RNA sequence: UGUCUCCUCCACCUUCCGAAAGGGUGGAUUCGGCCCAAGGCAGCAAUGCCUUGGGCUCUUUUC
Numbered sequence: 001u002g003u004c005u006c007c008u009c010c011a012c013c014u015u016c017c018g019a020a021a022g023g024g025u026g027g028a029u030u031c032g033g034c035c036c037a038a039g040g041c042a043g044c045a046a047u048g049c050c051u052u053g054g055g056c057u058c059u060u061u062u063c
Base pairs, nucleotide, nucleotide: 008028009027010026011025012024013023014022033056034055035054036053037052038051039050040049

About this RNA: Shown here is a 63-nucleotide sequence, a member of the family "Betaproteobacteria toxic small RNA". On this family, see Kimelman et al., Genome Res 2012: "A vast collection of microbial genes that are toxic to bacteria". Rfam's curators write: Overexpression in amino aid rich medium attenuates growth, suggesting role in repressing amino acid intake and metabolism. It is one of the family's seed sequences.